The family of this 146-nucleotide RNA sequence from Methylorubrum rhodinum is "Alphaproteobacterial sRNA BjrC1505". The base pairs follow the family's consensus structure. The source organism's lineage runs through Bacteria, Pseudomonadati, Alphaproteobacteria, Methylobacteriaceae and Methylorubrum. A search with the family's covariance model found it, with a score of 96 bits. By type it is a small RNA.
[Rfam]
RNA sequence: CGCUGCGCUUAACCGCCCGUUAACCUUUCCAGGGUACGAAGGAGCACAUCCAGAUUGUCUGGAUCCUGAGUGGGUCUUCUGUCCACUCUGUUUGAUGCCUCCCUGUAGACUCGCGACAAGCCGCUCUUCGGAGCGGCUUUUUUUUC
Numbered sequence: 001c002g003c004u005g006c007g008c009u010u011a012a013c014c015g016c017c018c019g020u021u022a023a024c025c026u027u028u029c030c031a032g033g034g035u036a037c038g039a040a041g042g043a044g045c046a047c048a049u050c051c052a053g054a055u056u057g058u059c060u061g062g063a064u065c066c067u068g069a070g071u072g073g074g075u076c077u078u079c080u081g082u083c084c085a086c087u088c089u090g091u092u093u094g095a096u097g098c099c100u101c102c103c104u105g106u107a108g109a110c111u112c113g114c115g116a117c118a119a120g121c122c123g124c125u126c127u128u129c130g131g132a133g134c135g136g137c138u139u140u141u142u143u144u145u146c
Base pairs, nucleotide, nucleotide: 001044003042004041006015007014016038021036022035024033025032026031048064049063050062051061068088069087070086071085072084073083095106096105097104116141118139119138120137121136122135123134124133125132126131